[Rfam]
RNA sequence: UGUAGUCGUUACUCUGUUAAUGGGGUAGGAACCGAGGCUCCUCUUGGGGUUACAUAGGCUCUCCUACCCAACUCGUAUUCCGUCACGUCCUCGUCGUACAGAGUGGUAACUUUCCCCACCACAUAUCCAAGCUUGGGUACACGAGCCUGUCUCAAACCCUUGGGAUAAACAGGAGGGGGGUGGGCAGGCCAGGCAACUGGU
Numbered sequence: 001u002g003u004a005g006u007c008g009u010u011a012c013u014c015u016g017u018u019a020a021u022g023g024g025g026u027a028g029g030a031a032c033c034g035a036g037g038c039u040c041c042u043c044u045u046g047g048g049g050u051u052a053c054a055u056a057g058g059c060u061c062u063c064c065u066a067c068c069c070a071a072c073u074c075g076u077a078u079u080c081c082g083u084c085a086c087g088u089c090c091u092c093g094u095c096g097u098a099c100a101g102a103g104u105g106g107u108a109a110c111u112u113u114c115c116c117c118a119c120c121a122c123a124u125a126u127c128c129a130a131g132c133u134u135g136g137g138u139a140c141a142c143g144a145g146c147c148u149g150u151c152u153c154a155a156a157c158c159c160u161u162g163g164g165a166u167a168a169a170c171a172g173g174a175g176g177g178g179g180g181u182g183g184g185c186a187g188g189c190c191a192g193g194c195a196a197c198u199g200g201u
Stems, first nucleotide, its partner, number of pairs: 011104007023069008032058002076199001084193001085097003089106002110187002114184002117182004126177003133155005157173002
RNA: drz-agam-2-2 ribozyme